[Rfam]
RNA sequence: ACUUCCACUAAGAAUGAUGUCAUCCCAGUGCCCAGACACUGGGAUCCAGAAAACUUAAUCGUAAAUGAGCACACCAGGUGGUUGUAUAGUAAAAGCUGGAUUCCAGUGUCAAGCACUGGAAUGACACCAUCCGCUACUCAAAUU
Numbered sequence: 001a002c003u004u005c006c007a008c009u010a011a012g013a014a015u016g017a018u019g020u021c022a023u024c025c026c027a028g029u030g031c032c033c034a035g036a037c038a039c040u041g042g043g044a045u046c047c048a049g050a051a052a053a054c055u056u057a058a059u060c061g062u063a064a065a066u067g068a069g070c071a072c073a074c075c076a077g078g079u080g081g082u083u084g085u086a087u088a089g090u091a092a093a094a095g096c097u098g099g100a101u102u103c104c105a106g107u108g109u110c111a112a113g114c115a116c117u118g119g120a121a122u123g124a125c126a127c128c129a130u131c132c133g134c135u136a137c138u139c140a141a142a143u144u
Stems, first nucleotide, its partner, number of pairs: 010138001013135001018126006025119007035110015
Dot-bracket structure: .........(..(....((((((.(((((((...(((((((((((((((..............................................)))))))))))))))..))))))).))))))........)..)......
A member of the RNA family "Wolbachia sRNA 46" from Trichonephila inaurata, 144 nucleotides long. The pairing is the family consensus, mapped onto this sequence.